[Rfam]
RNA sequence: UAUUUCUGGCAUAAAAACACAUCGCAGUUGGUAGUCUGUGAGCAUCUGAGGAUGUCAGUAACCUUCCCUCCCGGGUCGUCCGAUGUCAGAUAUUUUAAU
Numbered sequence: 001u002a003u004u005u006c007u008g009g010c011a012u013a014a015a016a017a018c019a020c021a022u023c024g025c026a027g028u029u030g031g032u033a034g035u036c037u038g039u040g041a042g043c044a045u046c047u048g049a050g051g052a053u054g055u056c057a058g059u060a061a062c063c064u065u066c067c068c069u070c071c072c073g074g075g076u077c078g079u080c081c082g083a084u085g086u087c088a089g090a091u092a093u094u095u096u097a098a099u
Stems, first nucleotide, its partner, number of pairs: 005090007022041006042055005066075003
Dot-bracket structure: ....(((((((..........((((((........))))))(((((....)))))..........(((....)))........))))))).........
Rfam assigns this 99-nucleotide sequence from Streptococcus henryi to the family "azaaromatic riboswitch aptamer (yjdF RNA)". The family's consensus secondary structure is taken from published work. Taxonomically the source falls in Streptococcus (Bacteria, Bacillota, Bacilli, Streptococcaceae).